[Rfam]
The family of this 80-nucleotide sequence from Moschus moschiferus is "Small nucleolar RNA U2-19". Taxonomically the source falls in Moschus (Eukaryota, Chordata, Euteleostomi, Laurasiatheria). The literature on the family includes a 2004 paper in Curr Biol by Tycowski et al., "Guide RNAs with 5' Caps and Novel Box C/D snoRNA-like Domains for Modification of snRNAs in Metazoa". A search with the family's covariance model found it, with a score of 85 bits. The family's consensus secondary structure is taken from published work. Rfam links the family to the GO terms nucleolus and RNA processing.
RNA sequence: GAUCAAUAAUGAAAGUAGUCUAAUCUGAGCAUCAGAAAACCUCUUAGUUUACCAGAUGCAUGAUCUUUAUAGUUCCAAAA
Numbered sequence: 001g002a003u004c005a006a007u008a009a010u011g012a013a014a015g016u017a018g019u020c021u022a023a024u025c026u027g028a029g030c031a032u033c034a035g036a037a038a039a040c041c042u043c044u045u046a047g048u049u050u051a052c053c054a055g056a057u058g059c060a061u062g063a064u065c066u067u068u069a070u071a072g073u074u075c076c077a078a079a080a
Base pairs, nucleotide, nucleotide: 029059030058031057032056033055037050038049039048040047